[Rfam]
RNA: U7 small nuclear RNA
Organism: Nomascus leucogenys
RNA sequence: UAGUGUUACAGCUCUUUAGAAUUUGUCUAGCAGGUUUUCCAGUAUUCACUGGAAAGCUCCU
Numbered sequence: 001u002a003g004u005g006u007u008a009c010a011g012c013u014c015u016u017u018a019g020a021a022u023u024u025g026u027c028u029a030g031c032a033g034g035u036u037u038u039c040c041a042g043u044a045u046u047c048a049c050u051g052g053a054a055a056g057c058u059c060c061u
Base pairs, nucleotide, nucleotide: 033058034057035056036055037054038053039052040051041050042049043048